About this RNA: Rfam assigns this 412-nucleotide RNA sequence to the family "Giant, ornate, lake- and Lactobacillales-derived (GOLLD) RNA". A reference for the family is Weinberg et al. (2009), "Exceptional structured noncoding RNAs revealed by bacterial metagenome analysis", Nature.
RNA sequence: GAGAGUAGUUGAGUAUCAGGUCGCUCAAAAGGUGAUUUGGCUCGGGUGGCGGACCACUACUUUCACAAUCCACGACACACAACUUAUGGAAACUAUUAAUUCCCAAAUUAAAAAGAUCAUUAAGGAAAAGUGUCCGUCAGGUCUAAUUGAAAGGUGACUACUUAGUCGUGAGCUGUUCACGGCACACAAGGAUCCCAAGUCUGAGUGUAAUUUUACCAAAGACCUCUAAUCCCGCAAGGACGAGCUGGGGAGGCAUCCUCGGAGAGAGUUGAGUAAUGAGAGAGUAGAUUAGACCUCAAGGAGUGGUUUACCUAAAUAACCGUCACUGAGAAAUACUUCUCAAAAGGAAGUGGAUAGGAGUAGAAUAAAUAAUGACUCUAAAGGUUCUCACAAAAAACUGUAAUCUCAGGUU
Number, nucleotide and partner (000 for none) at each position: 001g064002a063003g062004a061005g060006u059007a058008g057009u056010u044011g043012a042013g041014u040015a000016u000017c039018a038019g037020g036021u035022c034023g033024c032025u031026c000027a000028a000029a000030a000031g025032g024033u023034g022035a021036u020037u019038u018039g017040g014041c013042u012043c011044g010045g000046g000047u000048g138049g137050c136051g135052g134053a133054c132055c000056a009057c008058u007059a006060c005061u004062u003063u002064c001065a000066c000067a000068a000069u000070c000071c000072a000073c000074g000075a000076c000077a000078c000079a000080c000081a000082a000083c000084u000085u000086a000087u000088g000089g000090a000091a000092a000093c000094u000095a000096u000097u000098a000099a000100u000101u000102c000103c000104c000105a000106a000107a000108u000109u000110a000111a000112a000113a000114a000115g000116a000117u000118c000119a000120u000121u000122a000123a000124g196125g195126a000127a000128a000129a000130g000131u000132g054133u053134c052135c051136g050137u049138c048139a296140g295141g294142u293143c292144u291145a290146a289147u288148u287149g000150a000151a000152a000153g000154g326155u325156g324157a323158c322159u000160a000161c000162u000163u000164a000165g183166u182167c181168g180169u179170g178171a000172g000173c000174u000175g000176u000177u000178c170179a169180c168181g167182g166183c165184a208185c207186a206187c205188a000189a000190g202191g201192a200193u199194c000195c125196c124197a000198a000199g193200u192201c191202u190203g000204a000205g187206u186207g185208u184209a000210a000211u281212u280213u279214u278215a277216c000217c000218a000219a000220a000221g000222a000223c000224c266225u265226c264227u263228a000229a000230u240231c239232c238233c000234g000235c000236a000237a000238g232239g231240a230241c000242g000243a000244g000245c262246u261247g260248g000249g258250g257251a000252g000253g000254c000255a000256u000257c250258c249259u000260c247261g246262g245263a227264g226265a225266g224267a000268g000269u000270u000271g000272a000273g000274u000275a000276a000277u215278g214279a213280g212281a211282g000283a000284g000285u000286a000287g148288a147289u146290u145291a144292g143293a142294c141295c140296u139297c000298a000299a000300g000301g000302a000303g000304u000305g321306g320307u319308u318309u000310a000311c000312c000313u000314a000315a000316a000317u000318a308319a307320c306321c305322g158323u157324c156325a155326c154327u000328g389329a388330g387331a386332a385333a000334u352335a351336c350337u349338u348339c347340u346341c000342a000343a000344a000345a000346g340347g339348a338349a337350g336351u335352g334353g405354a404355u403356a000357g000358g378359a377360g376361u375362a000363g373364a000365a000366u000367a000368a000369a000370u000371a000372a000373u363374g000375a361376c360377u359378c358379u000380a000381a000382a000383g000384g000385u332386u331387c330388u329389c328390a000391c000392a000393a000394a000395a000396a000397a411398c410399u409400g000401u000402a000403a355404u354405c353406u000407c000408a000409g399410g398411u397412u000
By type it is a non-coding RNA gene.